[Rfam]
RNA sequence: UUAUCAUAAAUUAAUACAACCUGUAUAACCUCAGAAUAUGGCUUGGGGGGGUCUCUACCAGGAACCUUAAAAUCCUGAUUACAGAAAAUGAACUAAUCAUU
Numbered sequence: 001u002u003a004u005c006a007u008a009a010a011u012u013a014a015u016a017c018a019a020c021c022u023g024u025a026u027a028a029c030c031u032c033a034g035a036a037u038a039u040g041g042c043u044u045g046g047g048g049g050g051g052u053c054u055c056u057a058c059c060a061g062g063a064a065c066c067u068u069a070a071a072a073u074c075c076u077g078a079u080u081a082c083a084g085a086a087a088a089u090g091a092a093c094u095a096a097u098c099a100u101u
Stems, first nucleotide, its partner, number of pairs: 021084005029048004033043002059077005
About this RNA
Shown here is a 101-nucleotide RNA from Gracilibacillus boraciitolerans, a member of the family "Purine riboswitch aptamer". Riboswitches are metabolite binding domains within certain messenger RNAs that serve as precision sensors for their corresponding targets.